[Rfam]
RNA sequence: CGGACCAAGUAGAAGCUUCCCGCUUCUCACCUGUAGCGACGCAAAAAGCUGUUGGCAGGUUAACGAUUAAACAUGUGAAGUAUGUUCAUGUUAACGUGAAGAGCGGGGGUGACGCACCCUCGCUUUUUUUCGUGCUU
Numbered sequence: 001c002g003g004a005c006c007a008a009g010u011a012g013a014a015g016c017u018u019c020c021c022g023c024u025u026c027u028c029a030c031c032u033g034u035a036g037c038g039a040c041g042c043a044a045a046a047a048g049c050u051g052u053u054g055g056c057a058g059g060u061u062a063a064c065g066a067u068u069a070a071a072c073a074u075g076u077g078a079a080g081u082a083u084g085u086u087c088a089u090g091u092u093a094a095c096g097u098g099a100a101g102a103g104c105g106g107g108g109g110u111g112a113c114g115c116a117c118c119c120u121c122g123c124u125u126u127u128u129u130u131c132g133u134g135c136u137u
Stems, first nucleotide, its partner, number of pairs: 011027006029060003038053003041049002102124010
RNA: Ribosomal protein L20 leader
Organism: Staphylococcus sp. HGB0015